The family of this 125-nucleotide sequence is "TPP riboswitch aptamer (THI element)". Vitamin B(1) in its active form thiamin pyrophosphate (TPP) is an essential coenzyme that is synthesised by coupling of pyrimidine and thiazole moieties in bacteria. Pairs were carried over by alignment from the consensus structure, which is taken from published work. The match comes from Rfam's covariance-model search (55 bits).
[Rfam]
RNA sequence: GGAACCAGCGAGGGGUGCUUCCAGCGUAUGAAUGUUCCCAUAUUCAUCACGAGGGUCGCUGAGAUUAUACCCUUAAUUACCUGAUCCGGGUCAUACCGGCGGAGGGACUGCUGUUCAAAUUGAUA
Numbered sequence: 001g002g003a004a005c006c007a008g009c010g011a012g013g014g015g016u017g018c019u020u021c022c023a024g025c026g027u028a029u030g031a032a033u034g035u036u037c038c039c040a041u042a043u044u045c046a047u048c049a050c051g052a053g054g055g056u057c058g059c060u061g062a063g064a065u066u067a068u069a070c071c072c073u074u075a076a077u078u079a080c081c082u083g084a085u086c087c088g089g090g091u092c093a094u095a096c097c098g099g100c101g102g103a104g105g106g107a108c109u110g111c112u113g114u115u116c117a118a119a120u121u122g123a124u125a
Stems, first nucleotide, its partner, number of pairs: 006113005011073004016067001017059002021055001080105003086099004